RNA sequence: GCAUUUUUGAGAACCAUUUGAAUGACUAAAAUACUUGAUUCAAAUGGUUCUCAAAAA
Number, nucleotide and partner (000 for none) at each position: 001g000002c000003a000004u000005u000006u000007u054008u053009g052010a051011g050012a049013a048014c047015c046016a045017u044018u043019u042020g041021a040022a039023u038024g000025a036026c000027u000028a000029a000030a000031a000032u000033a000034c000035u000036u025037g000038a023039u022040u021041c020042a019043a018044a017045u016046g015047g014048u013049u012050c011051u010052c009053a008054a007055a000056a000057a000
Shown here is a 57-nucleotide sequence from Tetracentron sinense, a member of the family "Plastid-ccsA-ndhD-1 3UTR RNA". The family's RNA type in Rfam is cis-regulatory element. Rfam's curators write: Plastid-ccsA-ndhD-1 is a non-coding RNA (ncRNA) recognised in plastids. It was found in the three prime untranslated region (3UTR) of ccsA and ndhD genes, its 3UTR location suggests a role in transcript maturation. Taxonomically the source falls in Tetracentron (Eukaryota, Embryophyta, Tracheophyta, Trochodendrales). The match comes from Rfam's covariance-model search (53 bits). Its Rfam clan is "Plastid-ccsA_ndhD 3UTR RNA clan".